mir-10 microRNA precursor family: a 75-nucleotide RNA sequence from Channa argus.
[Rfam]
RNA sequence: CUAUAUGUACCCUGUAGAACCGAAUUUGUGUGACGUACAGCCAAUCGCAAAUACGUCUCUACAGGAAUACAUGGG
Number, nucleotide and partner (000 for none) at each position: 001c000002u073003a072004u071005a000006u069007g068008u000009a000010c065011c064012c000013u000014g000015u000016a060017g059018a058019a000020c000021c055022g054023a000024a052025u051026u050027u049028g048029u047030g046031u000032g000033a000034c000035g000036u000037a000038c000039a000040g000041c000042c000043a000044a000045u000046c030047g029048c028049a027050a026051a025052u024053a000054c022055g021056u000057c000058u018059c017060u016061a000062c000063a000064g011065g010066a000067a000068u007069a006070c000071a004072u003073g002074g000075g000
The source organism's lineage runs through Eukaryota, Craniata, Eurypterygia, Anabantaria and Channa.